RNA sequence: GGGAAAUGAGGAUGGGGCUGGGGAGACGAUCCCCCCCACGUCCUCCUCAGGCAAAUAGGCUCA
Numbered sequence: 001g002g003g004a005a006a007u008g009a010g011g012a013u014g015g016g017g018c019u020g021g022g023g024a025g026a027c028g029a030u031c032c033c034c035c036c037c038a039c040g041u042c043c044u045c046c047u048c049a050g051g052c053a054a055a056u057a058g059g060c061u062c063a
Stems, first nucleotide, its partner, number of pairs: 014044005021037003028062002031059002
Dot-bracket structure: .............(((((..(((....[[.[[..)))..))))).............]].]].
Source information: Shown here is a 63-nucleotide RNA from Gulo gulo, a member of the family "Ma3 gene ribosomal frameshift signal". The family has 12 seed sequences and 565 matches in Rfam 15.1. A reference for the family is Wills et al. (2006), "A functional -1 ribosomal frameshift signal in the human paraneoplastic Ma3 gene", J Biol Chem. A search with the family's covariance model found it, with a score of 39 bits. The family's RNA type in Rfam is frameshift element.